This 69-nucleotide RNA from Phyllobacterium zundukense belongs to the Rfam family "S-element". It scores 58 bits against the family's covariance model. The base pairs follow the family's consensus structure, which is taken from published work.
RNA sequence: UGUCAAGAGUCUUGAUCGUCGUUUUGGCGAGUUGGCUUCUUUUGCCUUUUUAAAAGGUGAAUGGAGAUG
Numbered sequence: 001u002g003u004c005a006a007g008a009g010u011c012u013u014g015a016u017c018g019u020c021g022u023u024u025u026g027g028c029g030a031g032u033u034g035g036c037u038u039c040u041u042u043u044g045c046c047u048u049u050u051u052a053a054a055a056g057g058u059g060a061a062u063g064g065a066g067a068u069g
Stems, first nucleotide, its partner, number of pairs: 010064002013061001017059004022055004026050002029047001031045002034042002
Lineage of the source: Bacteria > Pseudomonadati > Alphaproteobacteria > Phyllobacteriaceae > Phyllobacterium.